[Rfam]
RNA sequence: GACAAGCAUCAAGAGUGGACGGACGGCCAACAGGCCCGAUGCCCACGCCAACCUGCCCAGCCCGGGCAAGGUGGCGGUCCUCACGGGACGAUGCGGCCGACCAGGCAACCAAGCGGGUCACG
Numbered sequence: 001g002a003c004a005a006g007c008a009u010c011a012a013g014a015g016u017g018g019a020c021g022g023a024c025g026g027c028c029a030a031c032a033g034g035c036c037c038g039a040u041g042c043c044c045a046c047g048c049c050a051a052c053c054u055g056c057c058c059a060g061c062c063c064g065g066g067c068a069a070g071g072u073g074g075c076g077g078u079c080c081u082c083a084c085g086g087g088a089c090g091a092u093g094c095g096g097c098c099g100a101c102c103a104g105g106c107a108a109c110c111a112a113g114c115g116g117g118u119c120a121c122g
Stems, first nucleotide, its partner, number of pairs: 006094005015046004020041001047075003052071003055067003059118001061116002096106003

Rfam assigns this 122-nucleotide RNA sequence from Sphingomonas ginkgonis to the family "SAM-I/IV (S-adenosyl methionine) riboswitch aptamer". The literature on the family includes a 2008 paper in RNA by Weinberg et al., "The aptamer core of SAM-IV riboswitches mimics the ligand-binding site of SAM-I riboswitches". The source organism's lineage runs through Bacteria, Pseudomonadota, Alphaproteobacteria, Sphingomonadales and Sphingomonas.